RNA sequence: GAAAAGGGUCAGUUGCCUUCAUAUAUGCUGUGCACGGUUAGGUCGUGCACCGUAUGGACAUCAAGACAGAUGGCUGGCAAAAUUUCUGAACCUGUCAGUAGGGUUGGCACGCUUUGCCGACCCUUCCG
Numbered sequence: 001g002a003a004a005a006g007g008g009u010c011a012g013u014u015g016c017c018u019u020c021a022u023a024u025a026u027g028c029u030g031u032g033c034a035c036g037g038u039u040a041g042g043u044c045g046u047g048c049a050c051c052g053u054a055u056g057g058a059c060a061u062c063a064a065g066a067c068a069g070a071u072g073g074c075u076g077g078c079a080a081a082a083u084u085u086c087u088g089a090a091c092c093u094g095u096c097a098g099u100a101g102g103g104u105u106g107g108c109a110c111g112c113u114u115u116g117c118c119g120a121c122c123c124u125u126c127c128g
Stems, first nucleotide, its partner, number of pairs: 008078005017030001020027002031049007050073004055068002098126001100124010
Dot-bracket structure: .......(((((....(..((....))..)(((((((.....)))))))((((.((..........)).)))))))))...................(.((((((((((.....)))))))))).)..
Source information: The family of this 128-nucleotide RNA from Chara braunii is "U11 spliceosomal RNA". Taxonomically the source falls in Chara (Eukaryota, Streptophyta, Charophyceae, Charales). The family's consensus secondary structure is taken from published work.